[Rfam]
RNA sequence: GGGUGCGUCAGCCAUGUGGCUUGAAUCGCAGGUUAAAAAUCAACGCUGGUCGGGCCGCUAGCG
Numbered sequence: 001g002g003g004u005g006c007g008u009c010a011g012c013c014a015u016g017u018g019g020c021u022u023g024a025a026u027c028g029c030a031g032g033u034u035a036a037a038a039a040u041c042a043a044c045g046c047u048g049g050u051c052g053g054g055c056c057g058c059u060a061g062c063g
Base pairs, nucleotide, nucleotide: 005029006028007027008024009023010022044063045062046061047060048059049058050057
RNA: nhaA-I RNA
Organism: Pseudomonas cremoricolorata